Shown here is a 172-nucleotide sequence from Blautia luti, a member of the family "Group II catalytic intron D1-D4-3".
[Rfam]
RNA sequence: AAGACAGCAAUGUUUAGGGUGAGGAAGUGGUGUAGCAAAACCGUUGAGCCUACGAACAGAAACUGGAUAUGAGACUAAAUGGCGGGAAAGAUUGCGAAACAAAUCGAAGCCCAAAAGGUAAACGUAACGCCAAGAGAGUAAAUCCAGAGGUCGUGCGGUGAAAGACUUGUGU
Number, nucleotide and partner (000 for none) at each position: 001a000002a015003g014004a013005c012006a011007g000008c000009a000010a000011u006012g005013u004014u003015u002016a000017g000018g000019g000020u000021g000022a000023g000024g000025a000026a000027g172028u171029g170030g000031u000032g000033u000034a000035g000036c164037a000038a000039a000040a159041c158042c157043g156044u155045u000046g154047a000048g151049c150050c149051u148052a000053c000054g000055a000056a000057c000058a000059g000060a000061a000062a000063c147064u146065g145066g144067a143068u142069a000070u000071g000072a000073g000074a139075c138076u137077a000078a000079a000080u133081g131082g130083c129084g112085g111086g110087a000088a000089a000090g105091a104092u103093u102094g000095c000096g000097a000098a000099a000100c000101a000102a093103a092104u091105c090106g000107a000108a000109g000110c086111c085112c084113a000114a000115a000116a000117g000118g000119u000120a000121a000122a000123c000124g000125u000126a000127a000128c000129g083130c082131c081132a000133a080134g000135a000136g000137a076138g075139u074140a000141a000142a068143u067144c066145c065146a064147g063148a051149g050150g049151u048152c000153g000154u046155g044156c043157g042158g041159u040160g000161a000162a000163a000164g036165a000166c000167u000168u000169g000170u029171g028172u027

The organism belongs to Blautia, within Bacteria. A search with the family's covariance model found it, with a score of 99 bits.